[Rfam]
RNA sequence: GUUGAGAGAGCCGCCUUUUUUCGGUUCGUUGGGAAACCACUCGGCUG
Numbered sequence: 001g002u003u004g005a006g007a008g009a010g011c012c013g014c015c016u017u018u019u020u021u022c023g024g025u026u027c028g029u030u031g032g033g034a035a036a037c038c039a040c041u042c043g044g045c046u047g
Stems, first nucleotide, its partner, number of pairs: 001045006008027006030039003
Rfam assigns this 47-nucleotide sequence to the family "DUF3800-VI RNA". The sequence is in the family's curated seed alignment. The family's consensus secondary structure is taken from published work. By type it is a cis-regulatory element.